[Rfam]
RNA sequence: AGGAGGAACAAUCACAGUGGUGGGGGCCAGCUCUGGAGCCCUGGAUUCAGCUCCCACAGUAACUACAGGGUUCUCUGUCUGCAGAGGCCUGGAUGCUCUGGUGCGGG
Numbered sequence: 001a002g003g004a005g006g007a008a009c010a011a012u013c014a015c016a017g018u019g020g021u022g023g024g025g026g027c028c029a030g031c032u033c034u035g036g037a038g039c040c041c042u043g044g045a046u047u048c049a050g051c052u053c054c055c056a057c058a059g060u061a062a063c064u065a066c067a068g069g070g071u072u073c074u075c076u077g078u079c080u081g082c083a084g085a086g087g088c089c090u091g092g093a094u095g096c097u098c099u100g101g102u103g104c105g106g107g
Base pairs, nucleotide, nucleotide: 002099003098004097005096007094009091010090012087013086019079020078021077022076023075024074025073029072030071031070032069033068034067035066037064041059042058043057

Background:
A member of the RNA family "mir-8834 microRNA precursor family" from Canis lupus, 107 nucleotides long. The organism belongs to Canis lupus, within Eukaryota.